[Rfam]
RNA sequence: CGGGCAAGCCGUGACUGGCGCUGAGGUGGAUCACCACCGGGAAGCGGCCCGACCCUGUGUCCGAUGCCGCGCGCCUGGGCGUACCGC
Numbered sequence: 001c002g003g004g005c006a007a008g009c010c011g012u013g014a015c016u017g018g019c020g021c022u023g024a025g026g027u028g029g030a031u032c033a034c035c036a037c038c039g040g041g042a043a044g045c046g047g048c049c050c051g052a053c054c055c056u057g058u059g060u061c062c063g064a065u066g067c068c069g070c071g072c073g074c075c076u077g078g079g080c081g082u083a084c085c086g087c
Stems, first nucleotide, its partner, number of pairs: 003053001005051001008048005015041002017075005026037004064082005

Rfam assigns this 87-nucleotide RNA sequence from Yinghuangia soli to the family "ZMP/ZTP riboswitch aptamer (pfl RNA motif)". A reference for the family is Jones et al. (2019), "Co-crystal structure of the Fusobacterium ulcerans ZTP riboswitch using an X-ray free-electron laser", Acta Crystallogr F Struct Biol Commun. The organism belongs to Yinghuangia, within Bacteria.